[Rfam]
RNA sequence: AUAAAACGGGCACUCCGAGCUGCAUGACCUAAAGUUAUCCAUGGUCUGGCAGUCUGAACAAUUAGUUCACGGGGUAGCGAAAGAAAUUUCACUACCUCCCAAUCUGGGAAAGGAGGCGCUUCACGAGUUU
Numbered sequence: 001a002u003a004a005a006a007c008g009g010g011c012a013c014u015c016c017g018a019g020c021u022g023c024a025u026g027a028c029c030u031a032a033a034g035u036u037a038u039c040c041a042u043g044g045u046c047u048g049g050c051a052g053u054c055u056g057a058a059c060a061a062u063u064a065g066u067u068c069a070c071g072g073g074g075u076a077g078c079g080a081a082a083g084a085a086a087u088u089u090c091a092c093u094a095c096c097u098c099c100c101a102a103u104c105u106g107g108g109a110a111a112g113g114a115g116g117c118g119c120u121u122c123a124c125g126a127g128u129u130u
Stems, first nucleotide, its partner, number of pairs: 006121001011116001013115004019053005026046004034039001055069005072097006079090004098108002
RNA: Molybdenum/Tungsten riboswitch aptamer (Moco RNA motif)